[Rfam]
RNA sequence: GCUGGAUCAAUGAUGUUACUGGUAUACUGCGUUAUCUAUCUGCAAAUUAUUUGAAUUGAAGAUAGCUUUCAGACACUGAGAUCCAGU
Number, nucleotide and partner (000 for none) at each position: 001g087002c086003u085004g084005g083006a082007u081008c000009a000010a000011u000012g000013a000014u000015g000016u000017u000018a000019c000020u000021g000022g000023u000024a000025u000026a000027c000028u000029g000030c000031g000032u000033u000034a000035u000036c000037u000038a000039u000040c000041u000042g000043c000044a000045a000046a000047u000048u000049a000050u000051u000052u000053g000054a000055a000056u000057u000058g000059a000060a000061g000062a000063u000064a000065g000066c000067u000068u000069u000070c000071a000072g000073a000074c000075a000076c000077u000078g000079a000080g000081a007082u006083c005084c004085a003086g002087u001

A member of the RNA family "Small nucleolar RNA snoR27" from Jatropha curcas, 87 nucleotides long.
The family's consensus secondary structure was predicted with WAR.
The source organism's lineage runs through Eukaryota, Viridiplantae, Pentapetalae, rosids and Jatropha.
Rfam links the family to the GO terms nucleolus and RNA processing.